The record is a 56-nucleotide sequence from Erwinia mallotivora, which matches "ClpQY promoter" in Rfam. Pairs were carried over by alignment from the consensus structure.
[Rfam]
RNA sequence: CCCCGUAGCCAUGCUGCGGGGGUAUCUUUCUGACUGCAACAAGGGGUCUGCCCGUG
Numbered sequence: 001c002c003c004c005g006u007a008g009c010c011a012u013g014c015u016g017c018g019g020g021g022g023u024a025u026c027u028u029u030c031u032g033a034c035u036g037c038a039a040c041a042a043g044g045g046g047u048c049u050g051c052c053c054g055u056g
Stems, first nucleotide, its partner, number of pairs: 001021008
NCBI's taxonomy places the organism under Bacteria, Pseudomonadati, Pseudomonadota, Enterobacterales, Erwinia. On this family, see Lien et al., Open Microbiol J 2009: "Regulation of clpQ(+)Y(+) (hslV(+)U(+)) gene expression in Escherichia coli".